[Rfam]
RNA sequence: CGUCGAGUCGCGAACCGAUCCGUCGGGGAGCGAGCCGGGGAACCAAGCACCUGGGGUGAAUCCCCCUCGUGGCCGCGUGCGGCCGGGCGGGGGUAGGGCCAAGUCGUGCCCGAAUCCGUCAGCUCACCUGGUAGACGU
Numbered sequence: 001c002g003u004c005g006a007g008u009c010g011c012g013a014a015c016c017g018a019u020c021c022g023u024c025g026g027g028g029a030g031c032g033a034g035c036c037g038g039g040g041a042a043c044c045a046a047g048c049a050c051c052u053g054g055g056g057u058g059a060a061u062c063c064c065c066c067u068c069g070u071g072g073c074c075g076c077g078u079g080c081g082g083c084c085g086g087g088c089g090g091g092g093g094u095a096g097g098g099c100c101a102a103g104u105c106g107u108g109c110c111c112g113a114a115u116c117c118g119u120c121a122g123c124u125c126a127c128c129u130g131g132u133a134g135a136c137g138u
Stems, first nucleotide, its partner, number of pairs: 001137004008033003034132006044053002054117003062093004096111004

The record is a 138-nucleotide RNA sequence from Nocardioides sp. AX2bis, which matches "c-di-AMP riboswitch aptamer (ydaO/yuaA leader)" in Rfam. It scores 64 bits against the family's covariance model. NCBI's taxonomy places the organism under Bacteria, Bacillati, Actinomycetes, Propionibacteriales, Nocardioides. The pairing is the family consensus, mapped onto this sequence.